[Rfam]
RNA: Gammaproteobacterial sRNA STnc100
Organism: Stx2a-converting phage Stx2_EH2201
RNA sequence: UCAGACUGAGCAUUUGUUUAAAAAAUUCGCAUGGUGAAUCCCCCUGUGCGGAGGGGCGACUGGUGUAUAAGGUGUCAUCUCUGACGACAACCUGGAUCGAGAUACGCGGGUUCAGGGACACCGGACUGAACUCACCGGGAGGCACCCGGCACCAUGUACAUGAUGAUACAGAUACGCAGUGUCAGCCCCUCUCCGGAGGGGCUUUUUAUCUG
Number, nucleotide and partner (000 for none) at each position: 001u000002c000003a000004g000005a000006c000007u000008g000009a000010g000011c000012a000013u000014u166015u165016g164017u000018u000019u000020a000021a000022a000023a000024a000025a000026u000027u000028c000029g157030c156031a155032u154033g153034g152035u151036g150037a000038a000039u000040c000041c056042c055043c054044c053045u052046g000047u000048g000049c000050g000051g000052a045053g044054g043055g042056g041057c000058g000059a000060c000061u000062g000063g000064u000065g092066u000067a000068u000069a000070a000071g000072g000073u000074g000075u000076c000077a000078u000079c000080u000081c000082u000083g000084a000085c000086g000087a000088c000089a000090a000091c000092c065093u000094g000095g000096a000097u000098c106099g105100a000101g000102a000103u000104a000105c099106g098107c000108g133109g132110g131111u130112u000113c128114a127115g126116g000117g000118a000119c000120a000121c000122c000123g000124g000125a000126c115127u114128g113129a000130a111131c110132u109133c108134a000135c149136c148137g147138g146139g145140a000141g000142g000143c000144a000145c139146c138147c137148g136149g135150c036151a035152c034153c033154a032155u031156g030157u029158a000159c000160a000161u000162g000163a000164u016165g015166a014167u000168a000169c000170a000171g000172a000173u000174a000175c212176g211177c000178a000179g000180u000181g000182u000183c000184a203185g202186c201187c200188c199189c198190u197191c000192u000193c000194c000195g000196g000197a190198g189199g188200g187201g186202c185203u184204u000205u000206u000207u000208a000209u000210c000211u176212g175